[Rfam]
RNA sequence: AGUAAACUUUAGGGGUGUUCUAUCAUUUAGAACUGAGAAAGACCCUUUGAACCUGAUAUGGUUAGUACCAUCGAAGGGAAAAGUUGAAAAACACCU
Dot-bracket structure: .....(((((((((.((((((.......)))))......)..)))).....(((...((((......))))...)))..)))))............
Shown here is a 96-nucleotide sequence from Allotamlana fucoidanivorans, a member of the family "TPP riboswitch aptamer (THI element)". It scores 79 bits against the family's covariance model. The source organism's lineage runs through Bacteria, Bacteroidota, Flavobacteriia, Flavobacteriaceae and Allotamlana.